[Rfam]
RNA sequence: GCAUAGGCGUUAGGGAUGGAAGUGGCAUCCUUUUUUAUUUUUCUUAAAAAAGAUAUAACGGACAGCCUGUUAAAAC
Numbered sequence: 001g002c003a004u005a006g007g008c009g010u011u012a013g014g015g016a017u018g019g020a021a022g023u024g025g026c027a028u029c030c031u032u033u034u035u036u037a038u039u040u041u042u043c044u045u046a047a048a049a050a051a052g053a054u055a056u057a058a059c060g061g062a063c064a065g066c067c068u069g070u071u072a073a074a075a076c
Base pairs, nucleotide, nucleotide: 013068014067015066017064018063022059023058027054028053029052033049034048035047036046037045
This 76-nucleotide RNA sequence from Olleya namhaensis belongs to the Rfam family "Flavo-1 RNA". Rfam classes the family as a small RNA. Pairs were carried over by alignment from the consensus structure, which is taken from published work.